[Rfam]
A member of the RNA family "ffh sRNA" from Propylenella binzhouense, 52 nucleotides long. Lineage of the source: Bacteria > Pseudomonadati > Pseudomonadota > Alphaproteobacteria > Propylenella. Rfam classes the family as a small RNA. A search with the family's covariance model found it, with a score of 50 bits. On this family, see Meyer et al., BMC Genomics 2009: "Identification of candidate structured RNAs in the marine organism 'Candidatus Pelagibacter ubique'". The base pairs follow the family's consensus structure, which is taken from published work.
RNA sequence: GACGCCGGAGGCCAACACCCGCCAGCGAUGCUCGCCCGCGGGUGCGCUAACG
Numbered sequence: 001g002a003c004g005c006c007g008g009a010g011g012c013c014a015a016c017a018c019c020c021g022c023c024a025g026c027g028a029u030g031c032u033c034g035c036c037c038g039c040g041g042g043u044g045c046g047c048u049a050a051c052g
Stems, first nucleotide, its partner, number of pairs: 016044007025035004
Dot-bracket structure: ...............(((((((..((((...))))..)))))))........